[Rfam]
RNA sequence: GUUUGUCGAAGGAUAAGAUUAAGACCUUAAUUCAUAAAC
Numbered sequence: 001g002u003u004u005g006u007c008g009a010a011g012g013a014u015a016a017g018a019u020u021a022a023g024a025c026c027u028u029a030a031u032u033c034a035u036a037a038a039c
Stems, first nucleotide, its partner, number of pairs: 001039006008033001009028004
The record is a 39-nucleotide RNA, which matches "S4-Flavobacteria ribosomal protein leader" in Rfam. Rfam classes the family as a cis-regulatory leader. The sequence is in the family's curated seed alignment. The family's consensus secondary structure is taken from published work.